[Rfam]
RNA sequence: AUCCAUGUAUCUUUGGGACCUGCCAGACUGUGGCAGGCUUCCCUUCCUAGGCAUGGGAGAGCAUAAUCUUGUAUAUUGGCAUAGCUGACACCAUUUCAUUGGUAUCAGAUUCUGACUUGCACAAGUGACAUUC
Numbered sequence: 001a002u003c004c005a006u007g008u009a010u011c012u013u014u015g016g017g018a019c020c021u022g023c024c025a026g027a028c029u030g031u032g033g034c035a036g037g038c039u040u041c042c043c044u045u046c047c048u049a050g051g052c053a054u055g056g057g058a059g060a061g062c063a064u065a066a067u068c069u070u071g072u073a074u075a076u077u078g079g080c081a082u083a084g085c086u087g088a089c090a091c092c093a094u095u096u097c098a099u100u101g102g103u104a105u106c107a108g109a110u111u112c113u114g115a116c117u118u119g120c121a122c123a124a125g126u127g128a129c130a131u132u133c
Stems, first nucleotide, its partner, number of pairs: 002057006015043004020036005070130003076124003079120003085108003090103004
Small nucleolar RNA SNORA24: a 133-nucleotide sequence from Erinaceus europaeus. Rfam's curators write: ACA24 is a member of the H/ACA class of snoRNA that guide the sites of modification of uridines to pseudouridines. It is annotated as an H/ACA-box small nucleolar RNA. NCBI's taxonomy places the organism under Eukaryota, Opisthokonta, Metazoa, Laurasiatheria, Erinaceus. The base pairs follow the family's consensus structure, which was predicted with RNAfold. Rfam links the family to the GO terms nucleolus and RNA processing.